RNA sequence: UAUGCGACUGUAAACAUCCUCGACUGGAAGCUGUGAAGCAGUUGAAGGGCUUUCAGUCAGAUGUUUACUGCUGCCAA
Numbered sequence: 001u002a003u004g005c006g007a008c009u010g011u012a013a014a015c016a017u018c019c020u021c022g023a024c025u026g027g028a029a030g031c032u033g034u035g036a037a038g039c040a041g042u043u044g045a046a047g048g049g050c051u052u053u054c055a056g057u058c059a060g061a062u063g064u065u066u067a068c069u070g071c072u073g074c075c076a077a
Stems, first nucleotide, its partner, number of pairs: 004074003008070001010068009023057010